[Rfam]
RNA sequence: UGGUACCCAAUGUGAGGCCCAGGUACAAGGACUUCAGUGAAGAAUGUCACUGAGGAGAGCCGGCCAUAUCAAAAAGAAAAGAAAUAGAGGUAGUUGCAAGAUGGGAGCCUGCCCCAGCAACAAAGACCUCAGUAGGUGAGUGAUGAUAUGGGACAAGAAAUGAGUCAACAUGAAUUGUUUGUUGAAGGCCUCAAGAAGGCACUUAACGCUCUAGAGAUUAGGCUUAAAACACAGGCUUUGUUAAAGUUUUUUGUCUUUAUUAAAGAAGUUUGUCCCU
Numbered sequence: 001u002g003g004u005a006c007c008c009a010a011u012g013u014g015a016g017g018c019c020c021a022g023g024u025a026c027a028a029g030g031a032c033u034u035c036a037g038u039g040a041a042g043a044a045u046g047u048c049a050c051u052g053a054g055g056a057g058a059g060c061c062g063g064c065c066a067u068a069u070c071a072a073a074a075a076g077a078a079a080a081g082a083a084a085u086a087g088a089g090g091u092a093g094u095u096g097c098a099a100g101a102u103g104g105g106a107g108c109c110u111g112c113c114c115c116a117g118c119a120a121c122a123a124a125g126a127c128c129u130c131a132g133u134a135g136g137u138g139a140g141u142g143a144u145g146a147u148a149u150g151g152g153a154c155a156a157g158a159a160a161u162g163a164g165u166c167a168a169c170a171u172g173a174a175u176u177g178u179u180u181g182u183u184g185a186a187g188g189c190c191u192c193a194a195g196a197a198g199g200c201a202c203u204u205a206a207c208g209c210u211c212u213a214g215a216g217a218u219u220a221g222g223c224u225u226a227a228a229a230c231a232c233a234g235g236c237u238u239u240g241u242u243a244a245a246g247u248u249u250u251u252u253g254u255c256u257u258u259a260u261u262a263a264a265g266a267a268g269u270u271u272g273u274c275c276c277u
Stems, first nucleotide, its partner, number of pairs: 007030002012026003036047001037045001087130003091124001095120001096118002100114001103113002137155002141152001162203001164200003211253001213251006220238006262277001265274002
RNA: Mason-Pfizer monkey virus packaging signal
Organism: Mesocricetus auratus